Rfam assigns this 191-nucleotide sequence to the family "MIR159 microRNA precursor family". The family has 66 seed sequences and 3,649 matches in Rfam 15.1. Pairs were carried over by alignment from the consensus structure, which was predicted with WAR. It is one of the family's seed sequences.
RNA sequence: AAUAGAUGAAGAGAGCUUCCUUCAGUCCACUCAUGGAAGGGUAAGGGGUUUGAAUUACCUGCUGACUCAUUGAUUCAAACACAAUAGACAAUUAUGGGGUUAUGCUAUUGUGAAUGUGUGAAUGAUGCAGGAGGUGAAUUUCUUCCUUUUCUUCUUUGCUUGGACUGAAGGGAGCUCCCUUUUUCUAUUUA
Numbered sequence: 001a002a003u004a005g006a007u008g009a010a011g012a013g014a015g016c017u018u019c020c021u022u023c024a025g026u027c028c029a030c031u032c033a034u035g036g037a038a039g040g041g042u043a044a045g046g047g048g049u050u051u052g053a054a055u056u057a058c059c060u061g062c063u064g065a066c067u068c069a070u071u072g073a074u075u076c077a078a079a080c081a082c083a084a085u086a087g088a089c090a091a092u093u094a095u096g097g098g099g100u101u102a103u104g105c106u107a108u109u110g111u112g113a114a115u116g117u118g119u120g121a122a123u124g125a126u127g128c129a130g131g132a133g134g135u136g137a138a139u140u141u142c143u144u145c146c147u148u149u150u151c152u153u154c155u156u157u158g159c160u161u162g163g164a165c166u167g168a169a170g171g172g173a174g175c176u177c178c179c180u181u182u183u184u185c186u187a188u189u190u191a
Stems, first nucleotide, its partner, number of pairs: 013177008023167007036154001059133002062130003068124004076116001

A reference for the family is Jones-Rhoades and Bartel (2004), "Computational identification of plant microRNAs and their targets, including a stress-induced miRNA", Mol Cell.